[Rfam]
Nucleotides: 248
Stems, first nucleotide, its partner, number of pairs: 001080002004077003010037001012026002038063011083234001085232001088105007108228011123156002127150001129148006139239003158210005164204003170201001175197005
Number, partner (000 for none) and nucleotide at each position: 001080g002079u003000u004077g005076a006075c007000c008000a009000c010037c011000a012026g013025c014000u015000a016000u017000u018000a019000a020000c021000u022000c023000u024000u025013g026012c027000a028000u029000a030000a031000a032000a033000u034000c035000c036000g037010g038063u039062a040061a041060u042059u043058u044057c045056c046055g047054g048053c049000a050000g051000g052000a053048g054047c055046c056045g057044g058043a059042a060041a061040u062039u063038a064000c065000u066000c067000c068000u069000c070000a071000c072000a073000g074000a075006g076005u077004c078000u079002g080001c081000a082000a083234g084000a085232u086000g087000c088105a089104g090103g091102u092101c093100u094099a095000g096000g097000a098000u099094u100093a101092g102091a103090c104089c105088u106000a107000c108228g109227u110226u111225a112224a113223g114222g115221g116220g117219g118218u119000g120000a121000u122000g123156a124155c125000a126000c127150c128000c129148a130147c131146a132145g133144g134143u135000g136000a137000a138000c139239g140238c141237c142000a143134g144133c145132c146131u147130g148129u149000u150127g151000c152000u153000c154000u155124g156123u157000c158210g159209u160208c161207u162206a163000u164204c165203u166202u167000u168000a169000a170201g171000g172000a173000a174000u175197g176196a177195g178194a179193u180000g181000a182000g183000u184000g185000g186000a187000u188000u189000g190000g191000c192000a193179a194178u195177c196176u197175c198000g199000a200000g201170u202166g203165a204164g205000c206162u207161a208160g209159a210158c211000g212000u213000a214000a215000a216000a217000a218118g219117c220116c221115c222114c223113u224112u225111u226110a227109a228108c229000a230000u231000g232085a233000c234083c235000g236000a237141g238140g239139c240000a241000a242000a243000c244000a245000u246000u247000a248000c

The family of this 248-nucleotide sequence from Limnospira maxima is "HNH endonuclease-associated RNA and ORF (HEARO) RNA". Rfam classes the family as a non-coding RNA gene. The sequence is in the family's curated seed alignment. Taxonomically the source falls in Limnospira maxima (Bacteria, Cyanobacteriota, Oscillatoriophycideae, Oscillatoriales).